[Rfam]
RNA sequence: AGAAGUAUGCAAUAAUAACUUGCGAAAUGCUUUAGUGUUCCCUCGGAGUAUCUGGGGCAUGGCUAGGCAACUAGUCAUAAAACUAAAGAAUGUCAUUUUGCGAGACGCUGCUUCU
Numbered sequence: 001a002g003a004a005g006u007a008u009g010c011a012a013u014a015a016u017a018a019c020u021u022g023c024g025a026a027a028u029g030c031u032u033u034a035g036u037g038u039u040c041c042c043u044c045g046g047a048g049u050a051u052c053u054g055g056g057g058c059a060u061g062g063c064u065a066g067g068c069a070a071c072u073a074g075u076c077a078u079a080a081a082a083c084u085a086a087a088g089a090a091u092g093u094c095a096u097u098u099u100g101c102g103a104g105a106c107g108c109u110g111c112u113u114c115u
Stems, first nucleotide, its partner, number of pairs: 001115006009108002023100007030088007041057006
Dot-bracket structure: ((((((..((............((((((((((((((....((((((.....))))))........................))))))).....)))))))......)).))))))

Background:
This 115-nucleotide RNA belongs to the Rfam family "DUF3800-V RNA". The family's consensus secondary structure is taken from published work.